[Rfam]
RNA sequence: GCCGAUGAUGUUUUCAAUCCAACGUGUCUGAGGUUGUAGUGUACCCAAGUUCCUGUUUUUUCAGGGAGAACCUACUUGGUGUUGCUACAAGUCAAUGACAUCAAAGACUAAAACUGAGGU
Number, nucleotide and partner (000 for none) at each position: 001g120002c119003c118004g000005a000006u000007g000008a000009u000010g000011u000012u000013u000014u000015c000016a000017a000018u000019c000020c000021a000022a000023c000024g000025u000026g000027u000028c000029u000030g000031a000032g000033g000034u000035u000036g000037u000038a000039g000040u000041g000042u000043a000044c000045c000046c000047a000048a000049g000050u000051u066052c065053c064054u063055g062056u000057u000058u000059u000060u000061u000062c055063a054064g053065g052066g051067a000068g000069a000070a000071c000072c000073u000074a000075c000076u000077u000078g000079g000080u000081g000082u000083u000084g000085c000086u000087a000088c000089a000090a000091g000092u000093c000094a000095a000096u000097g000098a000099c000100a000101u000102c000103a000104a000105a000106g000107a000108c000109u000110a000111a000112a000113a000114c000115u000116g000117a000118g003119g002120u001
Rfam assigns this 120-nucleotide RNA sequence from Arachis hypogaea to the family "Small nucleolar RNA Z278". Taxonomically the source falls in Arachis (Eukaryota, eudicotyledons, Fabales, Papilionoideae). The base pairs follow the family's consensus structure, which was predicted with PFOLD. snoZ278 is a C/D box small nucleolar RNA. Its methylation guide targets have not been reported. By type it is a C/D-box small nucleolar RNA. The family has 7 seed sequences and 1,130 matches in Rfam 15.1. Gene Ontology terms of the family: RNA processing and nucleolus.